[Rfam]
RNA sequence: CGCUAUAAAGAGAGCUAUCCAUCGACAGUAUGGUGAUAGAUGACACUGUCAUGGACUUGCUCUCUUUGUGGAC
Numbered sequence: 001c002g003c004u005a006u007a008a009a010g011a012g013a014g015c016u017a018u019c020c021a022u023c024g025a026c027a028g029u030a031u032g033g034u035g036a037u038a039g040a041u042g043a044c045a046c047u048g049u050c051a052u053g054g055a056c057u058u059g060c061u062c063u064c065u066u067u068g069u070g071g072a073c
Stems, first nucleotide, its partner, number of pairs: 007067005013061003018055004024050003028046002
RNA: mir-46/mir-47/mir-281 microRNA precursor family